RNA sequence: ACGGGGGAAUUCCGAAAACCCGCUGAACAGAGUAGGAA
Number, nucleotide and partner (000 for none) at each position: 001a000002c022003g021004g020005g019006g000007g000008a000009a000010u000011u037012c036013c035014g000015a000016a000017a000018a000019c005020c004021c003022g002023c000024u000025g000026a000027a000028c000029a000030g000031a000032g000033u000034a000035g013036g012037a011038a000
RNA: DUF805b RNA